[Rfam]
RNA sequence: ACGUUUUGGUCAAAGUCAAACUAAUCUAAGUUUGACUAAUUUUGUAGAAAAAAGUAGUAAUAUUUUUAACCCAAGACAAAUAUAUUAUGAAAAUUAUUCAAUUAUAGAUUCAAUGAAACAAUACUGGUGUUGUAAAUAUUACUACUUUUUUCUAUAGAGUUAGUCAAACCUAGAGUAGUUUGACUUUGACCAAAGUCAA
Dot-bracket structure: ....(((((.(((((((((((((.((....(((((.........((((((((..(((.(((((((.((...(.((................................................)).)...)).))))))).)))..)))))))).........)))))....)).))))))))))))).))))).....

This 199-nucleotide sequence from Oryza nivara belongs to the Rfam family "MIR1435 microRNA precursor family". Taxonomically the source falls in Oryza (Eukaryota, Euphyllophyta, Poaceae, Oryzeae). Gene Ontology terms of the family: RISC complex and miRNA-mediated post-transcriptional gene silencing. It scores 100 bits against the family's covariance model. The family has 3 seed sequences and 1,765 matches in Rfam 15.1. Pairs were carried over by alignment from the consensus structure, which was predicted with RNAalifold.